[Rfam]
RNA sequence: AUGACCAUUGUGGGAGAGUCCGGCGGGACAAAACCGGCACCGAAGGAGCAAAAUUCCCAUAAACCCUUGGGAACCAAUCUCUCAGGUAUAACAGACCACAAUGUGACG
Numbered sequence: 001a002u003g004a005c006c007a008u009u010g011u012g013g014g015a016g017a018g019u020c021c022g023g024c025g026g027g028a029c030a031a032a033a034c035c036g037g038c039a040c041c042g043a044a045g046g047a048g049c050a051a052a053a054u055u056c057c058c059a060u061a062a063a064c065c066c067u068u069g070g071g072a073a074c075c076a077a078u079c080u081c082u083c084a085g086g087u088a089u090a091a092c093a094g095a096c097c098a099c100a101a102u103g104u105g106a107c108g
Stems, first nucleotide, its partner, number of pairs: 006103008020037004039087003042083002046081003